[Rfam]
RNA sequence: GGCAGAUUAAUGAUGAAACAAUCACCCCAAGCGCUUUAUUCCACUGAUUAAGGGUGAUGGAAAGCUAUGUUGUCAUAGCUUCUGUGGUUUUCAAUCUGAAACAUCU
Numbered sequence: 001g002g003c004a005g006a007u008u009a010a011u012g013a014u015g016a017a018a019c020a021a022u023c024a025c026c027c028c029a030a031g032c033g034c035u036u037u038a039u040u041c042c043a044c045u046g047a048u049u050a051a052g053g054g055u056g057a058u059g060g061a062a063a064g065c066u067a068u069g070u071u072g073u074c075a076u077a078g079c080u081u082c083u084g085u086g087g088u089u090u091u092c093a094a095u096c097u098g099a100a101a102c103a104u105c106u
Stems, first nucleotide, its partner, number of pairs: 004106004030045002033042001060083001062081008
The family of this 106-nucleotide sequence from Panicum virgatum is "Small nucleolar RNA Z194". A search with the family's covariance model found it, with a score of 71 bits. Gene Ontology terms of the family: RNA processing and nucleolus. Rfam classes the family as a C/D-box small nucleolar RNA.